This 105-nucleotide sequence belongs to the Rfam family "mir-166 microRNA precursor family". For this family Rfam cites "microRNAs: tiny regulators with great potential" (Ambros, Cell, 2001).
RNA sequence: GCUGAGAGGAACGCAGUCUGGCUCGAGGAAUGCUCAGAUCUGUUUUGAUCUGAUCGAUAUGUUCAUAUCUAAUUAAUUCUCGGACCAGGCUUCAUUCCUCCCAUC
Numbered sequence: 001g002c003u004g005a006g007a008g009g010a011a012c013g014c015a016g017u018c019u020g021g022c023u024c025g026a027g028g029a030a031u032g033c034u035c036a037g038a039u040c041u042g043u044u045u046u047g048a049u050c051u052g053a054u055c056g057a058u059a060u061g062u063u064c065a066u067a068u069c070u071a072a073u074u075a076a077u078u079c080u081c082g083g084a085c086c087a088g089g090c091u092u093c094a095u096u097c098c099u100c101c102c103a104u105c
Stems, first nucleotide, its partner, number of pairs: 001105001003103002006100006013093001016090006024082003
From the family's description: This family represents the plant microRNA (miRNA) precursor mir-166.
The family's consensus secondary structure was predicted with PFOLD.